[Rfam]
RNA sequence: AAUAUUGAAGAAAGCAGGAAAGAAUGGGUGAAGCGAUAGGGCGACUCACAAGUAACAUGGCAGUUAUGCUGAUAAACGUAUCAGACAGAGUGAGUGCAGAAUAAACAAGACCCAUCAAAGCAGUUGAAGAAAGCAGGAACGGCAGGACAAGAAAGCACAGUGUUCGGAACUAUUUGAAGAAAACUGAACAGGUUGAGCCAAUCAACACUUUACUCCUCAAUCAAAAAGCCGUUAAGUGGAAGAAUCAACCGAGCGAGAGGACACAGCACUUCAAUAUU
Numbered sequence: 001a002a003u004a005u006u007g008a009a010g011a012a013a014g015c016a017g018g019a020a021a022g023a024a025u026g027g028g029u030g031a032a033g034c035g036a037u038a039g040g041g042c043g044a045c046u047c048a049c050a051a052g053u054a055a056c057a058u059g060g061c062a063g064u065u066a067u068g069c070u071g072a073u074a075a076a077c078g079u080a081u082c083a084g085a086c087a088g089a090g091u092g093a094g095u096g097c098a099g100a101a102u103a104a105a106c107a108a109g110a111c112c113c114a115u116c117a118a119a120g121c122a123g124u125u126g127a128a129g130a131a132a133g134c135a136g137g138a139a140c141g142g143c144a145g146g147a148c149a150a151g152a153a154a155g156c157a158c159a160g161u162g163u164u165c166g167g168a169a170c171u172a173u174u175u176g177a178a179g180a181a182a183a184c185u186g187a188a189c190a191g192g193u194u195g196a197g198c199c200a201a202u203c204a205a206c207a208c209u210u211u212a213c214u215c216c217u218c219a220a221u222c223a224a225a226a227a228g229c230c231g232u233u234a235a236g237u238g239g240a241a242g243a244a245u246c247a248a249c250c251g252a253g254c255g256a257g258a259g260g261a262c263a264c265a266g267c268a269c270u271u272c273a274a275u276a277u278u
Stems, first nucleotide, its partner, number of pairs: 001278010024115006044095006053066004069084004123249005133237002138233006144217004152211004161190007192206005
Annotation:
The family of this 278-nucleotide RNA is "RAGATH-8 RNA". Pairs were carried over by alignment from the consensus structure, which is taken from published work. Gene Ontology term of the family: catalytic activity. Rfam's curators put it in the seed alignment.